[Rfam]
RNA sequence: ACAAUAAAUAUAGCGCCAGAACUCUUCGGAGUUGACGAGGACCAGAUUUAUCGAAUAUUCGGCGGAUGAUCUGGAGGUAUGAUGCUACCUGAACGAUGGGCAAAACAAGAAGCAAUUCUUGCACAAAUUCCAUUUGGCAUCAUUCA
Numbered sequence: 001a002c003a004a005u006a007a008a009u010a011u012a013g014c015g016c017c018a019g020a021a022c023u024c025u026u027c028g029g030a031g032u033u034g035a036c037g038a039g040g041a042c043c044a045g046a047u048u049u050a051u052c053g054a055a056u057a058u059u060c061g062g063c064g065g066a067u068g069a070u071c072u073g074g075a076g077g078u079a080u081g082a083u084g085c086u087a088c089c090u091g092a093a094c095g096a097u098g099g100g101c102a103a104a105a106c107a108a109g110a111a112g113c114a115a116u117u118c119u120u121g122c123a124c125a126a127a128u129u130c131c132a133u134u135u136g137g138c139a140u141c142a143u144u145c146a
Stems, first nucleotide, its partner, number of pairs: 020033005042074005051062004075090005095134005106121006
Overview:
Shown here is a 146-nucleotide sequence from Kandleria vitulina, a member of the family "glmS glucosamine-6-phosphate activated ribozyme aptamer".